Background
6S / SsrS RNA: a 186-nucleotide RNA from Luteimonas sp. MC1825. E. coli 6S RNA was the first non coding RNA to be sequenced, but its function was unknown until recently. It consists of 184 nucleotides that fold into an extended hairpin structure with a large single-stranded internal bulge. The 6S RNA specifically associates with RNA polymerase holoenzyme containing the sigma70 specificity factor. This interaction represses expression from a sigma70-dependent promoter during stationary phase. 6S RNA homologs have recently been identified in most bacterial genomes. Many Gram-positive species have two copies of 6S RNA. In Bacillus subtilis, both copies appear to interact with RNA polymerase holoenzyme containing the housekeeping sigma factor and be expressed during different stages of growth. In many proteobacteria, 6S RNA may be processed from a transcript encoding homologs of the E. coli YgfA protein which is a putative 5-formyltetrahydrofolate cycloligase activity. For this family Rfam cites "6S RNA regulates E. coli RNA polymerase activity" (Wassarman and Storz, Cell, 2000).
[Rfam]
RNA sequence: CGUCCUCUGCCGUGUUCGACGGCGCGCUCAAACAUACGCCUUGUCCCUUAAUGACGACCACGGGGGCGCGACGGAAGCCUGGCGCGCAUGUCCGCCCACGAGCGGAAAGCCCGAAGGCCGCCAAGCGUCCCCACUUGAACCCCGGGUUCAAGGUCGUUUGGCUCGCAUCGGCAUGGUGGAGGACGU
Numbered sequence: 001c002g003u004c005c006u007c008u009g010c011c012g013u014g015u016u017c018g019a020c021g022g023c024g025c026g027c028u029c030a031a032a033c034a035u036a037c038g039c040c041u042u043g044u045c046c047c048u049u050a051a052u053g054a055c056g057a058c059c060a061c062g063g064g065g066g067c068g069c070g071a072c073g074g075a076a077g078c079c080u081g082g083c084g085c086g087c088a089u090g091u092c093c094g095c096c097c098a099c100g101a102g103c104g105g106a107a108a109g110c111c112c113g114a115a116g117g118c119c120g121c122c123a124a125g126c127g128u129c130c131c132c133a134c135u136u137g138a139a140c141c142c143c144g145g146g147u148u149c150a151a152g153g154u155c156g157u158u159u160g161g162c163u164c165g166c167a168u169c170g171g172c173a174u175g176g177u178g179g180a181g182g183a184c185g186u
Stems, first nucleotide, its partner, number of pairs: 002184014017170003038154003042150002046146002062132003066128004073122002077118001079117002086110002091106005